Shown here is a 108-nucleotide sequence from Sinomonas sp. R1AF57, a member of the family "TPP riboswitch aptamer (THI element)". The organism belongs to Sinomonas, within Bacteria. Gene Ontology term of the family: thiamine pyrophosphate binding. Rfam describes the family as follows. Vitamin B(1) in its active form thiamin pyrophosphate (TPP) is an essential coenzyme that is synthesised by coupling of pyrimidine and thiazole moieties in bacteria.

RNA sequence: ACGCGUCCACACGGGUGCCCUCGCAAGGGCUGAGAUCGGGCUGACGCGGCCUGCGACCGUCGAACCUGUCCGGGUCAUGCCGGCGUAGGAAGUGAGAGCUUUCCCUUG
Dot-bracket structure: .....(.(((((((..(((((....)))))......(((((((...)))))))...))))....((((.((((......))))..))))..))).)............